Nucleotides: 085
Base pairs, nucleotide, nucleotide: 007033008032009031010030011029012028013027014026016023017022036068037067038066039065040064041063042062043061045060046059047058048057049056
Number, partner (000 for none) and nucleotide at each position: 001000u002000a003000g004000u005000g006000a007033g008032u009031u010030g011029g012028c013027g014026c015000u016023g017022c018000u019000c020000g021000g022017g023016c024000a025000u026014g027013c028012g029011c030010c031009g032008a033007c034000c035000u036068a037067c038066u039065u040064c041063g042062u043061u044000u045060g046059c047058c048057u049056c050000a051000g052000g053000a054000a055000c056049g057048a058047g059046g060045c061043g062042g063041c064040g065039a066038a067037g068036u069000u070000c071000c072000a073000c074000c075000a076000g077000a078000a079000a080000a081000a082000g083000g084000a085000a
gyrA RNA: an 85-nucleotide RNA sequence from Pseudomonas paraeruginosa.
The family's consensus secondary structure is taken from published work.
The source organism's lineage runs through Bacteria, Pseudomonadati, Pseudomonadales, Pseudomonas and Pseudomonas paraeruginosa.